[Rfam]
RNA sequence: UGCGCAGCGCAUGUUUCAGCACCACCUGGGUAAAGCCGACGCCCUUGAGCCGCGCCGUGCGGAUAUAUUGCGCCGUCAUCACCUCGGUCAUCGAGGCCCGCGUCAUCCGCGCGAUAUAGCCGAUGCCAUAAAGCGCAAUGGUCAUGACGGGCAGGGCGAAGUUCCAGAAGGUGAUGUCA
Numbered sequence: 001u002g003c004g005c006a007g008c009g010c011a012u013g014u015u016u017c018a019g020c021a022c023c024a025c026c027u028g029g030g031u032a033a034a035g036c037c038g039a040c041g042c043c044c045u046u047g048a049g050c051c052g053c054g055c056c057g058u059g060c061g062g063a064u065a066u067a068u069u070g071c072g073c074c075g076u077c078a079u080c081a082c083c084u085c086g087g088u089c090a091u092c093g094a095g096g097c098c099c100g101c102g103u104c105a106u107c108c109g110c111g112c113g114a115u116a117u118a119g120c121c122g123a124u125g126c127c128a129u130a131a132a133g134c135g136c137a138a139u140g141g142u143c144a145u146g147a148c149g150g151g152c153a154g155g156g157c158g159a160a161g162u163u164c165c166a167g168a169a170g171g172u173g174a175u176g177u178c179a
Stems, first nucleotide, its partner, number of pairs: 005140002009136002012133001014131002016128001019126003027123001029121002037113001040111003046105003051100002054097001055075001057073006082096005145179003151172002154165003
Ruegeria cis52 sRNA: a 179-nucleotide RNA sequence from Tabrizicola oligotrophica. Rfam 15.1 lists 277 matches to the family in 275 species. The base pairs follow the family's consensus structure, which was predicted with RNAfold. Gene Ontology term of the family: regulation of gene expression.